[Rfam]
RNA: Group II catalytic intron D1-D4-5
RNA sequence: CUUAACGUUACAACCGAGGAUGGGAAUGACGGAACCAUGUUUCCCGAAACCAUCCCGUCAAUACUCCUGCAUGCGUCAUGACUGACAGGUCAUGGGGUCUGAAGUACAGGUAGAUUCGGCAGAACGGAGGCUGAAGCCACUCCAUUGGAGAAGGUAUGCCAAUGGAUAUGCCGCGCGGCUGAAAA
Numbered sequence: 001c002u003u004a005a006c007g008u009u010a011c012a013a014c015c016g017a018g019g020a021u022g023g024g025a026a027u028g029a030c031g032g033a034a035c036c037a038u039g040u041u042u043c044c045c046g047a048a049a050c051c052a053u054c055c056c057g058u059c060a061a062u063a064c065u066c067c068u069g070c071a072u073g074c075g076u077c078a079u080g081a082c083u084g085a086c087a088g089g090u091c092a093u094g095g096g097g098u099c100u101g102a103a104g105u106a107c108a109g110g111u112a113g114a115u116u117c118g119g120c121a122g123a124a125c126g127g128a129g130g131c132u133g134a135a136g137c138c139a140c141u142c143c144a145u146u147g148g149a150g151a152a153g154g155u156a157u158g159c160c161a162a163u164g165g166a167u168a169u170g171c172c173g174c175g176c177g178g179c180u181g182a183a184a185a
Base pairs, nucleotide, nucleotide: 018055019054020053021052022051023050031045032044034042056177057176058175066110067109068108069107070101071100073098074097076095077094078093079092080091081090082089083088117173118172119171120170121169125164126163129160130159131150132149138147139146
Dot-bracket structure: .................((((((.......((.(.......).))....))))))(((.......((((((.((.((((((((....)))))))).)).)).....))))......(((((...((..((((.....((......)).))........))..))....))))).)))........